Background
Rfam assigns this 129-nucleotide sequence from Nannospalax galili to the family "Small nucleolar RNA SNORA40". About the family: The snoRNA ACA 40 belongs to the H/ACA family of snoRNAs and guides the pseudouridylation of 28S rRNA subunit at position U4565. NB This family has a high threshold value to exclude a large number of closely related sequences that do not appear to have conserved H and ACA boxes, and may be pseudogenes. The family's consensus secondary structure was predicted with RNAalifold. Gene Ontology terms of the family: RNA processing and nucleolus. The organism belongs to Nannospalax, within Eukaryota.

[Rfam]
RNA sequence: GUAGAUUGUGUGUGUGUUUGCUCAGCUGGUGGACAAAAGACAUGGAAGACAGGUGCAAAAAUAAAUCCUCUUUUGCAACCUAGAAUACAUUCUUCAAUAUGAGCAUUGAUACACUCAAGAAGGAAUAUG
Dot-bracket structure: (((..((((.(..((.((((.....(....)..))).).)).....).)))).)))........((.((.(((((.....(((..(.(((........))).)..))).......))))).)).))...